[Rfam]
The record is a 74-nucleotide sequence from Sclerurus mexicanus, which matches "mir-205 microRNA precursor family" in Rfam. The organism belongs to Sclerurus, within Eukaryota. The family's consensus secondary structure was predicted with RNAalifold.
RNA sequence: UCCUGGUGCCCUUCAUUCCACCGGAAUCUGUCGCUCCCGAAACCGGAUUUCAGUGAAAUGAAGCCUGUCAGAGA
Numbered sequence: 001u002c003c004u005g006g007u008g009c010c011c012u013u014c015a016u017u018c019c020a021c022c023g024g025a026a027u028c029u030g031u032c033g034c035u036c037c038c039g040a041a042a043c044c045g046g047a048u049u050u051c052a053g054u055g056a057a058a059u060g061a062a063g064c065c066u067g068u069c070a071g072a073g074a
Stems, first nucleotide, its partner, number of pairs: 011063006019055003023051004028046003
Gene Ontology terms of the family: miRNA-mediated post-transcriptional gene silencing and RISC complex.